[Rfam]
RNA sequence: GGAUGUGAGGGCGAUCUGGCUGCAAGAUCUGUCACCCCAUUGAUCGCCAGGGUUGAUUCGGCUGAUCUGGCUGGCUAGGCGGGUGUCCCCUUCCUCCCUCACCGAUCCAUGUGCGUCCCUCCUGAAGCUGCAUGCUCAGUCGAAAAGGACGACCUUCCCCGAUAGAGACGUAUCGUUCAUCGGUCAAGGGUAUACGGUAGCUGCGCUCCCCUGCUAGAACCUCCAGACAAGCUCAAAACUACAGGAUGAAUUAUCUUCUGAAGUGUGUUUUCUUUUUUUAAGUCCUUCUCUGUUGAAAAUAGCAUGAGCUUAAAGGGCAAUCUUAGAAAGCCAAGCCUAGCUU
Numbered sequence: 001g002g003a004u005g006u007g008a009g010g011g012c013g014a015u016c017u018g019g020c021u022g023c024a025a026g027a028u029c030u031g032u033c034a035c036c037c038c039a040u041u042g043a044u045c046g047c048c049a050g051g052g053u054u055g056a057u058u059c060g061g062c063u064g065a066u067c068u069g070g071c072u073g074g075c076u077a078g079g080c081g082g083g084u085g086u087c088c089c090c091u092u093c094c095u096c097c098c099u100c101a102c103c104g105a106u107c108c109a110u111g112u113g114c115g116u117c118c119c120u121c122c123u124g125a126a127g128c129u130g131c132a133u134g135c136u137c138a139g140u141c142g143a144a145a146a147g148g149a150c151g152a153c154c155u156u157c158c159c160c161g162a163u164a165g166a167g168a169c170g171u172a173u174c175g176u177u178c179a180u181c182g183g184u185c186a187a188g189g190g191u192a193u194a195c196g197g198u199a200g201c202u203g204c205g206c207u208c209c210c211c212u213g214c215u216a217g218a219a220c221c222u223c224c225a226g227a228c229a230a231g232c233u234c235a236a237a238a239c240u241a242c243a244g245g246a247u248g249a250a251u252u253a254u255c256u257u258c259u260g261a262a263g264u265g266u267g268u269u270u271u272c273u274u275u276u277u278u279u280a281a282g283u284c285c286u287u288c289u290c291u292g293u294u295g296a297a298a299a300u301a302g303c304a305u306g307a308g309c310u311u312a313a314a315g316g317g318c319a320a321u322c323u324u325a326g327a328a329a330g331c332c333a334a335g336c337c338u339a340g341c342u343u
Stems, first nucleotide, its partner, number of pairs: 001108003005102007013093002018090002025086001027084007035074002037070003042067004046062003117170001119167003122139004127135002140162003147158003201315002210306001212304003222297001224295001227293003231289001